Background
The record is a 132-nucleotide sequence from Balaenoptera musculus, which matches "U4 spliceosomal RNA" in Rfam. By type it is a spliceosomal small nuclear RNA. The organism belongs to Balaenoptera, within Eukaryota. The match comes from Rfam's covariance-model search (89 bits). About the family: U4 small nuclear RNA (U4 snRNA) is a component of the major U2-dependent spliceosome.
RNA sequence: AGCUUUGCGCAGUGGCAGUAUCGUAGCCAAUGAGGUUUAUCCGAGGCGCGAUUAUUGCUAAUUGAAAACUUUUCCCAAAUGCCAGCCUCUAGGCUAAGCCUUAACAAGUAAACGUGGAGAUUGUCUCUACAA
Numbered sequence: 001a002g003c004u005u006u007g008c009g010c011a012g013u014g015g016c017a018g019u020a021u022c023g024u025a026g027c028c029a030a031u032g033a034g035g036u037u038u039a040u041c042c043g044a045g046g047c048g049c050g051a052u053u054a055u056u057g058c059u060a061a062u063u064g065a066a067a068a069c070u071u072u073u074c075c076c077a078a079a080u081g082c083c084a085g086c087c088u089c090u091a092g093g094c095u096a097a098g099c100c101u102u103a104a105c106a107a108g109u110a111a112a113c114g115u116g117g118a119g120a121u122u123g124u125c126u127c128u129a130c131a132a
Stems, first nucleotide, its partner, number of pairs: 020052005026047003034042002085109002088104001091101004121132004